[Rfam]
RNA sequence: UAUUAUACAGUGUCAAAAGGUCUUAGCCCACCUGUGCUUGCACAAAGGUGGGAAAAUGACCUUGAGACACGCUCCGAUAUGAGCAUAAAAGGGAAGCGUAAGCUUCACGAUAUGCGAAUAAUCGGGGAGGAUUGCGGGAGUGCGAAGUGCGGAGCAAUCCGUAUAAUA
Numbered sequence: 001u002a003u004u005a006u007a008c009a010g011u012g013u014c015a016a017a018a019g020g021u022c023u024u025a026g027c028c029c030a031c032c033u034g035u036g037c038u039u040g041c042a043c044a045a046a047g048g049u050g051g052g053a054a055a056a057u058g059a060c061c062u063u064g065a066g067a068c069a070c071g072c073u074c075c076g077a078u079a080u081g082a083g084c085a086u087a088a089a090a091g092g093g094a095a096g097c098g099u100a101a102g103c104u105u106c107a108c109g110a111u112a113u114g115c116g117a118a119u120a121a122u123c124g125g126g127g128a129g130g131a132u133u134g135c136g137g138g139a140g141u142g143c144g145a146a147g148u149g150c151g152g153a154g155c156a157a158u159c160c161g162u163a164u165a166a167u168a
Base pairs, nucleotide, nucleotide: 001168002167003166004165005164006163007162011069012068013067014066017063018062019061020060021059022058024056027052028051029050030049031048032047033044034043035042036041073126074125075124076123077122078120079119080118083115084114085113086112093106094105096103097102129160130159131158132157133156134155135154140150141149142148143147
RNA: Clostridiales-1 RNA